[Rfam]
RNA sequence: CCUAUAAUUAUAGCGCCCGAACUAAGCGCCCGAAAAAAGGCUUAGUUGACGAGGAUGGAGGUUAUCGAAUUUUCGGCGGAUGCCUCCCGGCUGAUUAUGCAGAUCACAGCCGUAAGGAUUUCUUCAAACCAAGGGGGUAACUCCUUGAACAAAGAGAAAUCACAUGAUCUU
Numbered sequence: 001c002c003u004a005u006a007a008u009u010a011u012a013g014c015g016c017c018c019g020a021a022c023u024a025a026g027c028g029c030c031c032g033a034a035a036a037a038a039g040g041c042u043u044a045g046u047u048g049a050c051g052a053g054g055a056u057g058g059a060g061g062u063u064a065u066c067g068a069a070u071u072u073u074c075g076g077c078g079g080a081u082g083c084c085u086c087c088c089g090g091c092u093g094a095u096u097a098u099g100c101a102g103a104u105c106a107c108a109g110c111c112g113u114a115a116g117g118a119u120u121u122c123u124u125c126a127a128a129c130c131a132a133g134g135g136g137g138u139a140a141c142u143c144c145u146u147g148a149a150c151a152a153a154g155a156g157a158a159a160u161c162a163c164a165u166g167a168u169c170u171u
Stems, first nucleotide, its partner, number of pairs: 020047008057087005065076004088112006117161007130147007

This 171-nucleotide RNA sequence from Bacillus spizizenii belongs to the Rfam family "glmS glucosamine-6-phosphate activated ribozyme aptamer". The sequence is in the family's curated seed alignment. Lineage of the source: Bacteria > Bacillati > Bacillota > Caryophanales > Bacillus spizizenii. Rfam classes the family as a riboswitch.